Record summary: This 173-nucleotide RNA sequence from Bacillus aquiflavi belongs to the Rfam family "Group II catalytic intron D1-D4-3". It scores 138 bits against the family's covariance model. Group II introns are found in rRNA, tRNA and mRNA of organelles in fungi, plants and protists, and also in mRNA in bacteria.
RNA sequence: CUUGUCGUGAGGCAAGAGCUGAAGGAAGCGUGUACCAAAAUCUUGGUCUGACGAACAGAAAUCUGAUACCAAGGCUUUACAGAAGGAUAAGACUACUAAACAAGUCAAAGUCCAAAAGAUGUGCGUAACUCUGUGAAGUAAAUCAGGCAGAUAAAAAGAGGAAAGAUAAAUGU
Numbered sequence: 001c002u003u004g005u006c007g008u009g010a011g012g013c014a015a016g017a018g019c020u021g022a023a024g025g026a027a028g029c030g031u032g033u034a035c036c037a038a039a040a041u042c043u044u045g046g047u048c049u050g051a052c053g054a055a056c057a058g059a060a061a062u063c064u065g066a067u068a069c070c071a072a073g074g075c076u077u078u079a080c081a082g083a084a085g086g087a088u089a090a091g092a093c094u095a096c097u098a099a100a101c102a103a104g105u106c107a108a109a110g111u112c113c114a115a116a117a118g119a120u121g122u123g124c125g126u127a128a129c130u131c132u133g134u135g136a137a138g139u140a141a142a143u144c145a146g147g148c149a150g151a152u153a154a155a156a157a158g159a160g161g162a163a164a165g166a167u168a169a170a171u172g173u
Stems, first nucleotide, its partner, number of pairs: 001016006028173004036165001041159004046152005062147006074139003078135006085113004091106004
The pairing is the family consensus, mapped onto this sequence.